Shown here is a 158-nucleotide RNA sequence from Galemys pyrenaicus, a member of the family "U12 minor spliceosomal RNA". It is annotated as a spliceosomal small nuclear RNA. The family has 62 seed sequences and 2,106 matches in Rfam 15.1. The match comes from Rfam's covariance-model search (59 bits). The organism belongs to Galemys, within Eukaryota.

[Rfam]
RNA sequence: AUGCCUUGAAGUUAUGAAAAACUUAUAAGUAAGGAAAAUAACAAUUCAGGGUGAUUCCCAAAUCCUCACUAAUGUGAGAAUUUUUGAGCCAGUGAAGGUUGCCCCUACUAAGUUGACCUCCCUACUCUGCAGGACAUCCAGGAGUUGUGACCUGCCCA
Numbered sequence: 001a002u003g004c005c006u007u008g009a010a011g012u013u014a015u016g017a018a019a020a021a022c023u024u025a026u027a028a029g030u031a032a033g034g035a036a037a038a039u040a041a042c043a044a045u046u047c048a049g050g051g052u053g054a055u056u057c058c059c060a061a062a063u064c065c066u067c068a069c070u071a072a073u074g075u076g077a078g079a080a081u082u083u084u085u086g087a088g089c090c091a092g093u094g095a096a097g098g099u100u101g102c103c104c105c106u107a108c109u110a111a112g113u114u115g116a117c118c119u120c121c122c123u124a125c126u127c128u129g130c131a132g133g134a135c136a137u138c139c140a141g142g143a144g145u146u147g148u149g150a151c152c153u154g155c156c157c158a
Stems, first nucleotide, its partner, number of pairs: 004034005044063003049058002065078005092155002096153007105142002112138001114136002117133003121129001